[Rfam]
Source information:
A member of the RNA family "SAM riboswitch aptamer (S box leader)" from Gracilibacillus boraciitolerans, 108 nucleotides long. Gene Ontology term of the family: regulation of gene expression. The family is grouped with related families in Rfam's "SAM clan". Taxonomically the source falls in Gracilibacillus boraciitolerans (Bacteria, Bacilli, Caryophanales, Gracilibacillus).
RNA sequence: UUCUUAUCCAGAGAGGUGGAGGGGCUGGCCCUUUGAGACCUCAGCAACCGUCUAAAAAGACAAGGUGCUAAUUCCAGCAAGCAUGUAAAUAUGCUUGGAAGAUGAGAG
Number, nucleotide and partner (000 for none) at each position: 001u108002u107003c106004u105005u104006a103007u102008c101009c000010a000011g000012a000013g042014a041015g040016g039017u038018g000019g000020a000021g031022g030023g029024g000025c077026u076027g075028g074029c023030c022031c021032u000033u000034u000035g000036a000037g000038a017039c016040c015041u014042c013043a069044g068045c067046a066047a000048c065049c064050g061051u060052c059053u058054a000055a000056a000057a000058a053059g052060a051061c050062a000063a000064g049065g048066u046067g045068c044069u043070a000071a000072u000073u100074c028075c027076a026077g025078c097079a096080a095081g094082c093083a092084u000085g000086u000087a000088a000089a000090u000091a000092u083093g082094c081095u080096u079097g078098g000099a000100a073101g008102a007103u006104g005105a004106g003107a002108g001